[Rfam]
RNA sequence: ACAACGGUCCUUUUAAGGACCAACAAAUCAUUCAAAAAGAGUCUAU
Numbered sequence: 001a002c003a004a005c006g007g008u009c010c011u012u013u014u015a016a017g018g019a020c021c022a023a024c025a026a027a028u029c030a031u032u033c034a035a036a037a038a039g040a041g042u043c044u045a046u
Stems, first nucleotide, its partner, number of pairs: 006021006

This 46-nucleotide RNA sequence from Mytilus edulis belongs to the Rfam family "Histone 3' UTR stem-loop".
Gene Ontology term of the family: mRNA 3'-end processing by stem-loop binding and cleavage.
The mRNAs of metazoan histone genes lack a poly-A tail. 3' end processing occurs at a site between a highly conserved stem-loop (modelled by this family) and a purine rich region around 20 nts downstream (the histone downstream element, or HDE). The stem-loop is bound by a 31 kDa stem-loop binding protein (SLBP - also termed the histone hairpin binding protein, or HBP).
Pairs were carried over by alignment from the consensus structure, which is taken from published work.
The organism belongs to Mytilus, within Eukaryota.
By type it is a cis-regulatory element.